[Rfam]
RNA: mir-395 microRNA precursor family
RNA sequence: CUGUUCCCUGGAGUUCCCUUGACCACUUCACUAGGGCUAUUUUAAGACCCUGAGGAAAGUUUCGCCCUACUGAAGUGUUUGGGGGAACUCUGGGUGACAG
Numbered sequence: 001c002u003g004u005u006c007c008c009u010g011g012a013g014u015u016c017c018c019u020u021g022a023c024c025a026c027u028u029c030a031c032u033a034g035g036g037c038u039a040u041u042u043u044a045a046g047a048c049c050c051u052g053a054g055g056a057a058a059g060u061u062u063c064g065c066c067c068u069a070c071u072g073a074a075g076u077g078u079u080u081g082g083g084g085g086a087a088c089u090c091u092g093g094g095u096g097a098c099a100g
Base pairs, nucleotide, nucleotide: 005096007094008093009092011090012089013088014087015086016085017084018083019082020081022080024077025076026075027074028073029072030071032069033068034067035066